[Rfam]
RNA sequence: UUGCAAUGUAGCAUACCCGUUUUUGGUGAAUUACUCUGAUGAUUAUUUGUUAUUUAUUUACUUUUGGGUAACGGGGUGUUACAUGA
Numbered sequence: 001u002u003g004c005a006a007u008g009u010a011g012c013a014u015a016c017c018c019g020u021u022u023u024u025g026g027u028g029a030a031u032u033a034c035u036c037u038g039a040u041g042a043u044u045a046u047u048u049g050u051u052a053u054u055u056a057u058u059u060a061c062u063u064u065u066g067g068g069u070a071a072c073g074g075g076g077u078g079u080u081a082c083a084u085g086a
Stems, first nucleotide, its partner, number of pairs: 006084009016075006

MIR2617 microRNA precursor family: an 86-nucleotide RNA from Medicago truncatula. The family has 3 seed sequences and 1,174 matches in Rfam 15.1.